SAM (S-adenosyl methionine) riboswitch aptamer: a 113-nucleotide RNA from Intrasporangium oryzae.
A reference for the family is Weinberg et al. (2008), "The aptamer core of SAM-IV riboswitches mimics the ligand-binding site of SAM-I riboswitches", RNA.
About the family: SAM-IV is a mRNA element that regulates gene expression via direct sensing of S-adenosylmethionine (SAM or AdoMet).
RNA sequence: GGUCAUGAGCGCCAGCGACAAGCCCCGGCUCGCUGGCCGGCAACCCUCCACGCGGUGGGGUGCCCCGGGUGAAGACCUGGCCACGCCGCACCGGGCGUGAGCAAGCGCGAGCC
Number, nucleotide and partner (000 for none) at each position: 001g077002g076003u075004c074005a000006u000007g000008a000009g038010c000011g037012c036013c035014a034015g033016c032017g000018a000019c000020a000021a030022g029023c000024c000025c000026c000027g000028g000029c022030u021031c000032g016033c015034u014035g013036g012037c011038c009039g064040g063041c062042a000043a000044c060045c059046c058047u000048c055049c054050a000051c000052g000053c000054g049055g048056u000057g000058g046059g045060g044061u000062g041063c040064c039065c000066c000067g000068g000069g000070u000071g000072a000073a000074g004075a003076c002077c001078u000079g000080g102081c101082c099083a098084c097085g096086c095087c094088g000089c000090a000091c000092c000093g000094g087095g086096c085097g084098u083099g082100a000101g081102c080103a000104a000105g000106c000107g000108c000109g000110a000111g000112c000113c000